[Rfam]
RNA sequence: AUAAUCGAAUGGGCGAAAAACAAUUCGCCCUCUUACGCGGUCAAAGUCUUGGGAGGAUGUGAUCUAGGCGCGCUAAUCCGCUGCCGCCGGAAAACCGGAAAACAGAUCAGAACGCGUUAAACUGCAAGGCUUCGGGCCUUGCUUUUUUUU
Number, nucleotide and partner (000 for none) at each position: 001a000002u000003a150004a149005u000006c000007g000008a000009a000010u000011g030012g029013g028014c027015g026016a025017a000018a000019a000020a000021c000022a000023a000024u000025u016026c015027g014028c013029c012030c011031u000032c000033u000034u000035a000036c116037g115038c114039g113040g000041u000042c000043a000044a000045a000046g058047u057048c056049u055050u000051g000052g000053g000054a000055g049056g048057a047058u046059g000060u000061g108062a107063u106064c105065u104066a000067g085068g084069c083070g081071c080072g079073c000074u000075a000076a000077u000078c000079c072080g071081c070082u000083g069084c068085c067086g000087c098088c097089g096090g000091a000092a000093a000094a000095c000096c089097g088098g087099a000100a000101a000102a000103c000104a065105g064106a063107u062108c061109a000110g000111a000112a000113c039114g038115c037116g036117u000118u000119a000120a000121a000122c000123u000124g142125c141126a140127a139128g138129g137130c136131u000132u000133c000134g000135g000136g130137c129138c128139u127140u126141g125142c124143u000144u000145u000146u000147u000148u000149u004150u003
This 150-nucleotide RNA from Mesorhizobium denitrificans belongs to the Rfam family "Alphaproteobacterial sRNA ar9". A reference for the family is del Val et al. (2012), "A survey of sRNA families in alpha-proteobacteria", RNA Biol.